Rfam assigns this 103-nucleotide RNA sequence from Cavia porcellus to the family "Vault RNA". Rfam's curators write: This family of RNAs are found as part of the enigmatic vault ribonucleoprotein complex. The complex consists of a major vault protein (MVP), two minor vault proteins (VPARP and TEP1), and several small untranslated RNA molecules. It has been suggested that the vault complex is involved in drug resistance. The organism belongs to Cavia, within Eukaryota. Rfam 15.1 lists 2,873 matches to the family in 431 species. By type it is a non-coding RNA gene.

RNA sequence: AAAUUGAAACACUAGCCCAGCGGUUCCUUCGAGUCUGGCUUCCCAACCGCCCGGGCCGAUUGGUCCGGUGGUUCGAGACCCGCGGACACUCUCCAGUCCUUUU
Numbered sequence: 001a002a003a004u005u006g007a008a009a010c011a012c013u014a015g016c017c018c019a020g021c022g023g024u025u026c027c028u029u030c031g032a033g034u035c036u037g038g039c040u041u042c043c044c045a046a047c048c049g050c051c052c053g054g055g056c057c058g059a060u061u062g063g064u065c066c067g068g069u070g071g072u073u074c075g076a077g078a079c080c081c082g083c084g085g086a087c088a089c090u091c092u093c094c095a096g097u098c099c100u101u102u103u
Base pairs, nucleotide, nucleotide: 003097004096005095006094015087017085018084020083021082022081023080028077029076030075031074032073